[Rfam]
RNA sequence: CCGUCACUUAAACAUGGACGUACUUGCUCUGGCACCGGUGAAGUAAGUGCUUCCAUGUUUUAGUGCCGG
Number, nucleotide and partner (000 for none) at each position: 001c069002c068003g067004u000005c065006a064007c063008u062009u000010a060011a059012a058013c057014a056015u055016g054017g053018a052019c000020g050021u049022a048023c047024u046025u045026g044027c043028u042029c000030u000031g000032g000033c000034a000035c000036c000037g000038g000039u000040g000041a000042a028043g027044u026045a025046a024047g023048u022049g021050c020051u000052u018053c017054c016055a015056u014057g013058u012059u011060u010061u000062a008063g007064u006065g005066c000067c003068g002069g001
This 69-nucleotide RNA sequence from Rhinolophus ferrumequinum belongs to the Rfam family "mir-302 microRNA precursor family".
The source organism's lineage runs through Eukaryota, Bilateria, Teleostomi, Mammalia and Rhinolophus.
On this family, see Suh et al., Dev Biol 2004: "Human embryonic stem cells express a unique set of microRNAs".